[Rfam]
RNA sequence: GCGUCGAUGCAGGGAGACGCUGGCCGGUCACGGUCAGGGCCGAAGGAGCAACCGCCCCGGUAAACUCUCAGGCGCAAGGGACCUGUUUCGGCAA
Dot-bracket structure: .....((.(((((......((((..........)))).(((((..(((...((.....))....))))).)))........))))).)).....
RNA: Glycine riboswitch aptamer